Shown here is a 136-nucleotide RNA sequence from Octodon degus, a member of the family "U4 spliceosomal RNA". It is annotated as a spliceosomal small nuclear RNA. Lineage of the source: Eukaryota > Gnathostomata > Sarcopterygii > Mammalia > Octodon. A search with the family's covariance model found it, with a score of 70 bits. The base pairs follow the family's consensus structure, which is taken from published work.
RNA sequence: AGCUUUGCGCAGUGGCAGUAUCGUAGCCAGUGAGGUCUAUCCUAGGCUCGAUUAUUGCUAAUCGAAAACUCAGCAAUGCCAGCAUGUAGGCUCUGUCCCUACCCAGUUCCUUACUGUCAGGAUAAUUUUAAGAAAU
Numbered sequence: 001a002g003c004u005u006u007g008c009g010c011a012g013u014g015g016c017a018g019u020a021u022c023g024u025a026g027c028c029a030g031u032g033a034g035g036u037c038u039a040u041c042c043u044a045g046g047c048u049c050g051a052u053u054a055u056u057g058c059u060a061a062u063c064g065a066a067a068a069c070u071c072a073g074c075a076a077u078g079c080c081a082g083c084a085u086g087u088a089g090g091c092u093c094u095g096u097c098c099c100u101a102c103c104c105a106g107u108u109c110c111u112u113a114c115u116g117u118c119a120g121g122a123u124a125a126u127u128u129u130a131a132g133a134a135a136u
Stems, first nucleotide, its partner, number of pairs: 020052004026047003034042002084112001088111003093106003125136004